[Rfam]
RNA sequence: UCACCCCAUAGGGCAUCCCCUGAUCAAGGAUGAUUCCAGACCUAUCGGGUGAACAACUGAAUAACUGCAGCCAGCCUACUGGAAUAGCUGGUCGCCAAUUCUGAAGCGGGAGUAAUCCCAUUCGGACGGUCGACUAUGCCUUUUUUGGCUGGUGC
Numbered sequence: 001u002c003a004c005c006c007c008a009u010a011g012g013g014c015a016u017c018c019c020c021u022g023a024u025c026a027a028g029g030a031u032g033a034u035u036c037c038a039g040a041c042c043u044a045u046c047g048g049g050u051g052a053a054c055a056a057c058u059g060a061a062u063a064a065c066u067g068c069a070g071c072c073a074g075c076c077u078a079c080u081g082g083a084a085u086a087g088c089u090g091g092u093c094g095c096c097a098a099u100u101c102u103g104a105a106g107c108g109g110g111a112g113u114a115a116u117c118c119c120a121u122u123c124g125g126a127c128g129g130u131c132g133a134c135u136a137u138g139c140c141u142u143u144u145u146u147g148g149c150u151g152g153u154g155c
Stems, first nucleotide, its partner, number of pairs: 001052005008045005014032005034084006068151007092133003096129001106121001108119003
Rfam assigns this 155-nucleotide RNA from Desulfosporosinus sp. Tol-M to the family "DUF2800 RNA". It scores 78 bits against the family's covariance model. NCBI's taxonomy places the organism under Bacteria, Bacillati, Eubacteriales, Desulfitobacteriaceae, Desulfosporosinus. The family's RNA type in Rfam is cis-regulatory element.